[Rfam]
RNA: CRISPR RNA direct repeat element
Nucleotides: 037
Base pairs, nucleotide, nucleotide: 005033006032007031008030010026013023014022015021
Number, partner (000 for none) and nucleotide at each position: 001000c002000c003000u004000u005033c006032a007031a008030c009000c010026c011000g012000c013023c014022c015021c016000u017000a018000u019000u020000c021015g022014g023013g024000a025000g026010g027000u028000u029000u030008g031007u032006u033005g034000a035000a036000a037000c